[Rfam]
RNA: S15-Methanomicrobia ribosomal protein leader
RNA sequence: AGCACUAUUCGUGAUGAAAGUGCUGGCAUAUGUAAAUCCGACGUGCUUCACCGCACGGCCUGCGUGGCUGGGGAUUAC
Numbered sequence: 001a002g003c004a005c006u007a008u009u010c011g012u013g014a015u016g017a018a019a020g021u022g023c024u025g026g027c028a029u030a031u032g033u034a035a036a037u038c039c040g041a042c043g044u045g046c047u048u049c050a051c052c053g054c055a056c057g058g059c060c061u062g063c064g065u066g067g068c069u070g071g072g073g074a075u076u077a078c
Base pairs, nucleotide, nucleotide: 001024002023003022004021005020006019032078033077034076035075038073039072043056044055045054046053057069058068059067060066